[Rfam]
RNA sequence: GAGUUACUUUCACUGGCGAGGUUAAUCACAUAGAUGUGAGCAGCCGGAGCGAAAGCGAGUCUGAAUAGGGCGCUUAGUCAGUGGGAGUAGACGCGAAACUUUGUGAUCUACCCAUGAGCAGGUUGAAGCUCCGGUAAAACGGAGUGGAGGACCGAACCAGUUUACGUUGAAAAGUAUUUGGAUGACUUGUGGGUAGGGGUGAAAGGCCAAUCAAACUGAGAAAUAGCUCGUA
Numbered sequence: 001g002a003g004u005u006a007c008u009u010u011c012a013c014u015g016g017c018g019a020g021g022u023u024a025a026u027c028a029c030a031u032a033g034a035u036g037u038g039a040g041c042a043g044c045c046g047g048a049g050c051g052a053a054a055g056c057g058a059g060u061c062u063g064a065a066u067a068g069g070g071c072g073c074u075u076a077g078u079c080a081g082u083g084g085g086a087g088u089a090g091a092c093g094c095g096a097a098a099c100u101u102u103g104u105g106a107u108c109u110a111c112c113c114a115u116g117a118g119c120a121g122g123u124u125g126a127a128g129c130u131c132c133g134g135u136a137a138a139a140c141g142g143a144g145u146g147g148a149g150g151a152c153c154g155a156a157c158c159a160g161u162u163u164a165c166g167u168u169g170a171a172a173a174g175u176a177u178u179u180g181g182a183u184g185a186c187u188u189g190u191g192g193g194u195a196g197g198g199g200u201g202a203a204a205g206g207c208c209a210a211u212c213a214a215a216c217u218g219a220g221a222a223a224u225a226g227c228u229c230g231u232a
Stems, first nucleotide, its partner, number of pairs: 005089013020045004026039003049056002059071004092230002095227001099220003103216002108196011119184001121153004128145006157181003163176003198208003